FMN riboswitch aptamer (RFN element): a 128-nucleotide sequence from Agathobaculum faecis. Gene Ontology term of the family: FMN binding. Rfam describes the family as follows. The RFN element is a highly conserved domain that is found frequently in the 5'-untranslated regions of prokaryotic mRNAs that encode for flavin mononucleotide (FMN) biosynthesis and transport proteins. Pairs were carried over by alignment from the consensus structure, which is taken from published work. It scores 114 bits against the family's covariance model. The organism belongs to Agathobaculum, within Bacteria.

[Rfam]
RNA sequence: AGAUUUCUUCAGGGCAGGGUGCAAUUCCCUACCGGCGGUACAGCCCGCGAGCGGACGCCUUUCCGGCGGAAGCAUGACUCGGUGGAACUCCGAGGCCGACAGUAUAGUCUGGAUGAAAGAAGAAAGUG
Number, nucleotide and partner (000 for none) at each position: 001a000002g000003a000004u125005u124006u123007c122008u121009u120010c119011a000012g000013g000014g000015c000016a000017g029018g028019g027020u000021g000022c000023a000024a000025u000026u000027c019028c018029c017030u000031a108032c107033c098034g097035g048036c047037g046038g045039u000040a000041c000042a000043g096044c095045c038046c037047g036048c035049g000050a000051g073052c072053g000054g000055a000056c000057g000058c000059c000060u000061u000062u000063c000064c000065g000066g000067c000068g000069g000070a000071a000072g052073c051074a000075u000076g000077a000078c094079u093080c092081g091082g090083u000084g000085g000086a000087a000088c000089u000090c082091c081092g080093a079094g078095g044096c043097c034098g033099a000100c111101a110102g109103u000104a000105u000106a000107g032108u031109c102110u101111g100112g000113a000114u000115g000116a000117a000118a000119g010120a009121a008122g007123a006124a005125a004126g000127u000128g000